The record is a 421-nucleotide RNA from Gordonia soli, which matches "Bacterial RNase P class A" in Rfam. The family's RNA type in Rfam is ribozyme. Taxonomically the source falls in Gordonia soli (Bacteria, Bacillati, Actinomycetes, Gordonia). The match comes from Rfam's covariance-model search (261 bits).
[Rfam]
RNA sequence: CGAGUCGGCCGGGCGGCCGCGGUACGCGGAACGGCCGGUCGCCGGUACGCCGCGGACCGAGGAAAGUCCGGACUCCGUAGAGCAGGGUGGUUGUCAACGGCAACCCGGGGUGACCCGCGGGACAGUGCCACAGAGAACAGACCGCCGUCGGUUCGCCGACGGUAAGGGUGAAACGGUGCGGUAAGAGCGCACCAGCGGUUCGGGUGACCGGGCCGGCUAGGUAAACCCCACCCGGAGCAAGGCCAAAGCCCGGACUCGCGAUCCCUCGAGGAUCGGGUCCGGGUGCGCGGGUGAUCGAGGACUGCUCGUCCGAGCCCGCGGGUGGGCCGCUCGAGGCACCCGGUGACGGUGUGUCCAGAUGGAUGGUCGCCACCGGUCUCUGAGACCGGUACAGGAUCCGGCUUACACGCCGGCUCGUUCG
Numbered sequence: 001c002g003a004g005u006c007g008g009c010c011g012g013g014c015g016g017c018c019g020c021g022g023u024a025c026g027c028g029g030a031a032c033g034g035c036c037g038g039u040c041g042c043c044g045g046u047a048c049g050c051c052g053c054g055g056a057c058c059g060a061g062g063a064a065a066g067u068c069c070g071g072a073c074u075c076c077g078u079a080g081a082g083c084a085g086g087g088u089g090g091u092u093g094u095c096a097a098c099g100g101c102a103a104c105c106c107g108g109g110g111u112g113a114c115c116c117g118c119g120g121g122a123c124a125g126u127g128c129c130a131c132a133g134a135g136a137a138c139a140g141a142c143c144g145c146c147g148u149c150g151g152u153u154c155g156c157c158g159a160c161g162g163u164a165a166g167g168g169u170g171a172a173a174c175g176g177u178g179c180g181g182u183a184a185g186a187g188c189g190c191a192c193c194a195g196c197g198g199u200u201c202g203g204g205u206g207a208c209c210g211g212g213c214c215g216g217c218u219a220g221g222u223a224a225a226c227c228c229c230a231c232c233c234g235g236a237g238c239a240a241g242g243c244c245a246a247a248g249c250c251c252g253g254a255c256u257c258g259c260g261a262u263c264c265c266u267c268g269a270g271g272a273u274c275g276g277g278u279c280c281g282g283g284u285g286c287g288c289g290g291g292u293g294a295u296c297g298a299g300g301a302c303u304g305c306u307c308g309u310c311c312g313a314g315c316c317c318g319c320g321g322g323u324g325g326g327c328c329g330c331u332c333g334a335g336g337c338a339c340c341c342g343g344u345g346a347c348g349g350u351g352u353g354u355c356c357a358g359a360u361g362g363a364u365g366g367u368c369g370c371c372a373c374c375g376g377u378c379u380c381u382g383a384g385a386c387c388g389g390u391a392c393a394g395g396a397u398c399c400g401g402c403u404u405a406c407a408c409g410c411c412g413g414c415u416c417g418u419u420c421g
Stems, first nucleotide, its partner, number of pairs: 001417009011406001012371007020059004025054004064404003068401005073237004080307004085233005090104005105119001106117004120228002125226002127222003142167002144163008175193006195217001196215008241328004287319006299311004335355005340349003